[Rfam]
The family of this 98-nucleotide RNA sequence from Lederbergia lenta is "pan motif". By type it is a cis-regulatory element. Pairs were carried over by alignment from the consensus structure, which is taken from published work.
RNA sequence: UGGGCAGUAUCAGAGAUGAACUGCACCUUGCGUUAGAAUAAAAAAGAUAAAUUGAACAAUUUAAUCUGCCUUGAUCCAUAGUGGACUGGGACAGAGGG
Numbered sequence: 001u002g003g004g005c006a007g008u009a010u011c012a013g014a015g016a017u018g019a020a021c022u023g024c025a026c027c028u029u030g031c032g033u034u035a036g037a038a039u040a041a042a043a044a045a046g047a048u049a050a051a052u053u054g055a056a057c058a059a060u061u062u063a064a065u066c067u068g069c070c071u072u073g074a075u076c077c078a079u080a081g082u083g084g085a086c087u088g089g090g091a092c093a094g095a096g097g098g
Base pairs, nucleotide, nucleotide: 002027003026004024005023006022007021008020010019011018066094067093068092069090070089071088073086075085076084077083